[Rfam]
RNA sequence: AAUCGACCUCCGUCGAUUUUUUUAUUUCAAAAUUAAAGAAACGGCUUGAGAUAUUCCGAGCAGUUAUAAAAAUUAAUUUGUCUUGAAUAUUGCUACUACAUUCUUGAAAAAGUGAUUUAGAUUUAUAGCCCAUAACUUUUUUGAAUUCCAUCGACGAUACGGCGUCGAAAGAAAAAUAAACAGACCGUACGAAAGAAAAAA
Numbered sequence: 001a002a003u004c005g006a007c008c009u010c011c012g013u014c015g016a017u018u019u020u021u022u023u024a025u026u027u028c029a030a031a032a033u034u035a036a037a038g039a040a041a042c043g044g045c046u047u048g049a050g051a052u053a054u055u056c057c058g059a060g061c062a063g064u065u066a067u068a069a070a071a072a073u074u075a076a077u078u079u080g081u082c083u084u085g086a087a088u089a090u091u092g093c094u095a096c097u098a099c100a101u102u103c104u105u106g107a108a109a110a111a112g113u114g115a116u117u118u119a120g121a122u123u124u125a126u127a128g129c130c131c132a133u134a135a136c137u138u139u140u141u142u143g144a145a146u147u148c149c150a151u152c153g154a155c156g157a158u159a160c161g162g163c164g165u166c167g168a169a170a171g172a173a174a175a176a177u178a179a180a181c182a183g184a185c186c187g188u189a190c191g192a193a194a195g196a197a198a199a200a201a
Stems, first nucleotide, its partner, number of pairs: 001018007038057001040055002043052001045050001060099001062097003073086004104144010114131001118128001151168006
RNA: Enterococcus sRNA A1